RNA sequence: CUUUGACUUUAACAUGGAGGUACUCUCUGUGCCUUUUUAGAAAGAGUAAGUGCUUCCAUGUUUUAGUGGAAG
Numbered sequence: 001c002u003u004u005g006a007c008u009u010u011a012a013c014a015u016g017g018a019g020g021u022a023c024u025c026u027c028u029g030u031g032c033c034u035u036u037u038u039a040g041a042a043a044g045a046g047u048a049a050g051u052g053c054u055u056c057c058a059u060g061u062u063u064u065a066g067u068g069g070a071a072g
Base pairs, nucleotide, nucleotide: 001072002071003070006067007066008065011062012061013060014059015058016057017056018055019054020053021052022051023050024049027046028045
RNA: mir-302 microRNA precursor family